Shown here is a 99-nucleotide sequence from Cohnella abietis, a member of the family "Purine riboswitch aptamer". A search with the family's covariance model found it, with a score of 52 bits.
RNA sequence: ACCGAGGCAAGACGUGAAACGCGUAUAAGUCGGGAAUCGGCCCGAACGUCUCUACCUGGAAACCUUAAUUUCCAGACUACGCUGCAAUCGUCAACGACA
Dot-bracket structure: ....................(((((...((((((......))))).)........(((((((......)))))))..))))).................